[Rfam]
RNA sequence: CCAGAGGGCCGGGCGGCCGCGGCGUGGCGGGUAACUUCCACGGCGAGGAAAGUCCGGGCUCCACGAAAUAACGGUGCCGGCUAACGGCCGGCUGGAGUGAUCCAAGGGACAGUGCAACAGAAAGCAGGUCGCUAAGACUUCGGUCCAGCGAAAUUGAAAGGGUGCGGUAAGAGCGCACCGCGUCUCCGGCAACGGAAGGCGGCACGGUAAACCCCACCGGGAGCAAGACCGAAUAGGGGCGGCGCGCAGCUUGACUGCUAGGCUGAUUUCGGCUGAGACCGCCCGGGUUGGUUGCUUGAGGGACGGAGCAAUCCGUCCCCUAGAGGAAUGGUCGCCACUCCCCGCAAGGAGAGAACAGAACCCGGCUUACAGGCCCUCUGGCAUU
Numbered sequence: 001c002c003a004g005a006g007g008g009c010c011g012g013g014c015g016g017c018c019g020c021g022g023c024g025u026g027g028c029g030g031g032u033a034a035c036u037u038c039c040a041c042g043g044c045g046a047g048g049a050a051a052g053u054c055c056g057g058g059c060u061c062c063a064c065g066a067a068a069u070a071a072c073g074g075u076g077c078c079g080g081c082u083a084a085c086g087g088c089c090g091g092c093u094g095g096a097g098u099g100a101u102c103c104a105a106g107g108g109a110c111a112g113u114g115c116a117a118c119a120g121a122a123a124g125c126a127g128g129u130c131g132c133u134a135a136g137a138c139u140u141c142g143g144u145c146c147a148g149c150g151a152a153a154u155u156g157a158a159a160g161g162g163u164g165c166g167g168u169a170a171g172a173g174c175g176c177a178c179c180g181c182g183u184c185u186c187c188g189g190c191a192a193c194g195g196a197a198g199g200c201g202g203c204a205c206g207g208u209a210a211a212c213c214c215c216a217c218c219g220g221g222a223g224c225a226a227g228a229c230c231g232a233a234u235a236g237g238g239g240c241g242g243c244g245c246g247c248a249g250c251u252u253g254a255c256u257g258c259u260a261g262g263c264u265g266a267u268u269u270c271g272g273c274u275g276a277g278a279c280c281g282c283c284c285g286g287g288u289u290g291g292u293u294g295c296u297u298g299a300g301g302g303a304c305g306g307a308g309c310a311a312u313c314c315g316u317c318c319c320c321u322a323g324a325g326g327a328a329u330g331g332u333c334g335c336c337a338c339u340c341c342c343c344g345c346a347a348g349g350a351g352a353g354a355a356c357a358g359a360a361c362c363c364g365g366c367u368u369a370c371a372g373g374c375c376c377u378c379u380g381g382c383a384u385u
Stems, first nucleotide, its partner, number of pairs: 001381010011370001012336007020045002023042005050368003054365005059223004070269001072219005077091005092106001093104004107214002112212002114208002129153001131149003136145003161179006180203001181201005186195003227293004237284006263277002266274001300319008
Dot-bracket structure: ((((((((((((((((((.((.(((((..........))))).))....[[[.[[[[[((((.......[.((((((((((.....)))))(((((....)))).)((...((((.............(.(((..(((....))).)))...).......((((((.......))))))(((((((((....))).))))).)...))..)))))))))))))...((((......((((((....................((.(..]....).)).)))))).....))))......((((((((....))))))))..........)))))))........................]]]]]]]].).))))))))))....
A member of the RNA family "Bacterial RNase P class A", 385 nucleotides long. Rfam links the family to the GO terms ribonuclease P activity, tRNA processing and dimeric ribonuclease P complex. From the family's description: Ribonuclease P (RNase P) is a ubiquitous endoribonuclease, found in archaea, bacteria and eukarya as well as chloroplasts and mitochondria. Its best characterised activity is the generation of mature 5'-ends of tRNAs by cleaving the 5'-leader elements of precursor-tRNAs. Cellular RNase Ps are ribonucleoproteins. RNA from bacterial RNase Ps retains its catalytic activity in the absence of the protein subunit, i.e. it is a ribozyme. The family's consensus secondary structure is taken from published work.